[Rfam]
RNA sequence: CAAAAUAAUAAAUAUGUUUUUCGUAUAAUAGCGGGAAUAAGGCCCGCUAGUUUCUACAGGCUGCCGUAAAAAGCUUGACUACGAAAUGAACGCGGUCAAAA
Numbered sequence: 001c002a003a004a005a006u007a008a009u010a011a012a013u014a015u016g017u018u019u020u021u022c023g024u025a026u027a028a029u030a031g032c033g034g035g036a037a038u039a040a041g042g043c044c045c046g047c048u049a050g051u052u053u054c055u056a057c058a059g060g061c062u063g064c065c066g067u068a069a070a071a072a073g074c075u076u077g078a079c080u081a082c083g084a085a086a087u088g089a090a091c092g093c094g095g096u097c098a099a100a101a
Base pairs, nucleotide, nucleotide: 019086020085021084022083023082024081025080029049030048031047032046033045034044035043057077058076059075060074061073062072
Source information
The record is a 101-nucleotide sequence from Salibacterium salarium, which matches "Purine riboswitch aptamer" in Rfam. Riboswitches are metabolite binding domains within certain messenger RNAs that serve as precision sensors for their corresponding targets.